[Rfam]
RNA sequence: CUGACCGCCUCUAAGCUCCCCGACGCCCAGGCCGCUAGCGAAAGUGCCAACACCUUGCUGCCUACCACUCUGGGAGGGGUCAACUUCGCCCUGCAUUCGG
Numbered sequence: 001c002u003g004a005c006c007g008c009c010u011c012u013a014a015g016c017u018c019c020c021c022g023a024c025g026c027c028c029a030g031g032c033c034g035c036u037a038g039c040g041a042a043a044g045u046g047c048c049a050a051c052a053c054c055u056u057g058c059u060g061c062c063u064a065c066c067a068c069u070c071u072g073g074g075a076g077g078g079g080u081c082a083a084c085u086u087c088g089c090c091c092u093g094c095a096u097u098c099g100g
Base pairs, nucleotide, nucleotide: 003012025032034061035060077098079096080095
The family of this 100-nucleotide RNA sequence from Halomonas sp. DQ26W is "Pyrrolysine insertion sequence mttB". Rfam classes the family as a cis-regulatory element. On this family, see Theil Have et al., BMC Bioinformatics 2013: "Effects of using coding potential, sequence conservation and mRNA structure conservation for predicting pyrroly-sine containing genes". Rfam 15.1 lists 416 matches to the family in 326 species. Taxonomically the source falls in Halomonas (Bacteria, Pseudomonadati, Pseudomonadota, Oceanospirillales). Gene Ontology term of the family: pyrrolysine incorporation.